Rfam assigns this 101-nucleotide RNA sequence from Mycolicibacterium insubricum to the family "mraW RNA". The match comes from Rfam's covariance-model search (64 bits). By type it is a cis-regulatory element.

RNA sequence: GACCCGCGCGUCGCGGUCUCUGCCCGAACCGGCCCUGGCGUACUUCCCCAACGUCAGGUCCACGCAUUCGGGCAGGGACCUCGGUGCACGGGCGCGGCGAC
Numbered sequence: 001g002a003c004c005c006g007c008g009c010g011u012c013g014c015g016g017u018c019u020c021u022g023c024c025c026g027a028a029c030c031g032g033c034c035c036u037g038g039c040g041u042a043c044u045u046c047c048c049c050a051a052c053g054u055c056a057g058g059u060c061c062a063c064g065c066a067u068u069c070g071g072g073c074a075g076g077g078a079c080c081u082c083g084g085u086g087c088a089c090g091g092g093c094g095c096g097g098c099g100a101c
Base pairs, nucleotide, nucleotide: 008087009086010085011084012083013082015080016079018077019076020075021074022073023072024071025070026069027068028067029064031061032060034058035057036056037055038054039053040052041051
NCBI's taxonomy places the organism under Bacteria, Bacillati, Actinomycetota, Mycobacteriales, Mycobacterium (subgen. Mycolicibacterium).